[Rfam]
RNA: SAM riboswitch aptamer (S box leader)
Organism: Neobacillus rhizophilus
RNA sequence: UUCUUAUCAAGAGAGGUGGAGGGACUGGCCCUUUGAAGCCUCGGCAGCAGACACGUUAGUACUGUGCCAAUUCCAGAAGCGAGUGCUUGAAGAUAAGAA
Number, nucleotide and partner (000 for none) at each position: 001u099002u098003c097004u096005u095006a094007u093008c092009a000010a000011g000012a000013g042014a041015g040016g039017u038018g000019g000020a000021g031022g030023g029024a000025c076026u075027g074028g073029c023030c022031c021032u000033u000034u000035g000036a000037a000038g017039c016040c015041u014042c013043g068044g067045c066046a065047g000048c064049a063050g060051a000052c000053a057054c000055g000056u000057u053058a000059g000060u050061a000062c000063u049064g048065u046066g045067c044068c043069a000070a000071u000072u091073c028074c027075a026076g025077a088078a087079g086080c085081g000082a000083g000084u000085g080086c079087u078088u077089g000090a000091a072092g008093a007094u006095a005096a004097g003098a002099a001